[Rfam]
This 72-nucleotide RNA from Magallana gigas belongs to the Rfam family "mir-1991 microRNA precursor family". The family's consensus secondary structure was predicted with RNAalifold.

RNA sequence: AACCUUACCCUGUAAAUCGGAGAAGUCUGAAUUUCCUCAGUCAGGUAACUUCUCGUUUCACAGGGUAUAUUU
Numbered sequence: 001a002a003c004c005u006u007a008c009c010c011u012g013u014a015a016a017u018c019g020g021a022g023a024a025g026u027c028u029g030a031a032u033u034u035c036c037u038c039a040g041u042c043a044g045g046u047a048a049c050u051u052c053u054c055g056u057u058u059c060a061c062a063g064g065g066u067a068u069a070u071u072u
Stems, first nucleotide, its partner, number of pairs: 006067008015058002018055002021053006